Overview: The record is an 83-nucleotide RNA from Octopus sinensis, which matches "mir-11 microRNA precursor family" in Rfam. The match comes from Rfam's covariance-model search (45 bits). Its family is annotated with miRNA-mediated post-transcriptional gene silencing, negative regulation of cell death and cellular response to gamma radiation in the Gene Ontology. Clan: mir-6 clan.
RNA sequence: GCAGGCUUCAAGGUCCCAGGUUGUGACAGGAGUGUUUCCACAGUUGAAACUCUCUUAUCACAACCUGGGACCUUGAAGCCUGC
Numbered sequence: 001g002c003a004g005g006c007u008u009c010a011a012g013g014u015c016c017c018a019g020g021u022u023g024u025g026a027c028a029g030g031a032g033u034g035u036u037u038c039c040a041c042a043g044u045u046g047a048a049a050c051u052c053u054c055u056u057a058u059c060a061c062a063a064c065c066u067g068g069g070a071c072c073u074u075g076a077a078g079c080c081u082g083c
Stems, first nucleotide, its partner, number of pairs: 004080003009075009021063006030056003